[Rfam]
RNA sequence: CCCCUGGGUCUCCGAUGCGGCCCCGGGCUGAGCCCUCAGUAUUUUCCUUAUAUGAUCAGGCUCCAUUACGGGCAGCGCUGCUUGCCUAGAGCCUGAGAGGAUUACGAAAACGUGGCUGGUGAAUAGGGGCCUGGGGACCCGGCG
Numbered sequence: 001c002c003c004c005u006g007g008g009u010c011u012c013c014g015a016u017g018c019g020g021c022c023c024c025g026g027g028c029u030g031a032g033c034c035c036u037c038a039g040u041a042u043u044u045u046c047c048u049u050a051u052a053u054g055a056u057c058a059g060g061c062u063c064c065a066u067u068a069c070g071g072g073c074a075g076c077g078c079u080g081c082u083u084g085c086c087u088a089g090a091g092c093c094u095g096a097g098a099g100g101a102u103u104a105c106g107a108a109a110a111c112g113u114g115g116c117u118g119g120u121g122a123a124u125a126g127g128g129g130c131c132u133g134g135g136g137a138c139c140c141g142g143c144g
Stems, first nucleotide, its partner, number of pairs: 001144001003142001005141009020130005056096006063089001069084006
The family of this 144-nucleotide sequence from Spermophilus dauricus is "small Cajal body-specific RNA 17". Its family is annotated with Cajal body, RNA processing and nucleolus in the Gene Ontology. Rfam's curators write: scaRNAs are a specific class of small nuclear RNAs which localise to the Cajal bodies and guide the modification of RNA polymerase II transcribed spliceosomal RNAs U1, U2, U4, U5 and U12. The complete human U12-22/U4-8 scaRNA is composed of two tandem C/D box domains (termed U12-22 and U4-8).